[Rfam]
RNA sequence: UUUACAUAGAAAUCUUUGGCAUUCUGUCCACCUCCUAUAGAAAAGGGGGACUCUUGUAUAACUUGGGAGGUGGGCAUCCUGCCAAUAGAGCUCUGUUUG
Numbered sequence: 001u002u003u004a005c006a007u008a009g010a011a012a013u014c015u016u017u018g019g020c021a022u023u024c025u026g027u028c029c030a031c032c033u034c035c036u037a038u039a040g041a042a043a044a045g046g047g048g049g050a051c052u053c054u055u056g057u058a059u060a061a062c063u064u065g066g067g068a069g070g071u072g073g074g075c076a077u078c079c080u081g082c083c084a085a086u087a088g089a090g091c092u093c094u095g096u097u098u099g
Stems, first nucleotide, its partner, number of pairs: 013089001016085006025076011

Source information: A member of the RNA family "MIR394 microRNA precursor family" from Chenopodium quinoa, 99 nucleotides long. Taxonomically the source falls in Chenopodium (Eukaryota, Streptophyta, Euphyllophyta, eudicotyledons). A search with the family's covariance model found it, with a score of 79 bits.